Rfam assigns this 68-nucleotide sequence from Chinchilla lanigera to the family "Small Nucleolar RNA SNORD64". It scores 69 bits against the family's covariance model. The organism belongs to Chinchilla, within Eukaryota. Its Rfam clan is "SNORD74 clan". Rfam links the family to the GO terms RNA processing and nucleolus. A reference for the family is Runte et al. (2001), "The IC-SNURF-SNRPN transcript serves as a host for multiple small nucleolar RNA species and as an antisense RNA for UBE3A", Hum Mol Genet.

RNA sequence: GGACUGAUGAUGAGCUUUGUCUACUGAGCGUGAAUGAGACGAGUCUCAAUAUGAUUACUCUGAAGUCU
Numbered sequence: 001g002g003a004c005u006g007a008u009g010a011u012g013a014g015c016u017u018u019g020u021c022u023a024c025u026g027a028g029c030g031u032g033a034a035u036g037a038g039a040c041g042a043g044u045c046u047c048a049a050u051a052u053g054a055u056u057a058c059u060c061u062g063a064a065g066u067c068u
Base pairs, nucleotide, nucleotide: 001068002067003066004065005064012060013059014058020054021053025048026047027046028045